[Rfam]
RNA: RAGATH-18 RNA
Nucleotides: 080
Base pairs, nucleotide, nucleotide: 001078002077003076004075005074009067010066011065012064013063022062023061024060030055032053033052034051035050036049037048038047039046
Number, partner (000 for none) and nucleotide at each position: 001078c002077u003076u004075g005074u006000g007000g008000a009067c010066u011065g012064u013063u014000a015000u016000a017000u018000c019000a020000a021000a022062u023061g024060a025000a026000a027000g028000u029000a030055g031000a032053c033052u034051u035050u036049a037048c038047a039046u040000u041000u042000c043000a044000a045000g046039g047038u048037g049036u050035a051034a052033a053032g054000a055030c056000a057000a058000a059000a060024u061023c062022a063013g064012a065011c066010a067009g068000g069000g070000u071000g072000a073000a074005g075004c076003a077002a078001g079000a080000a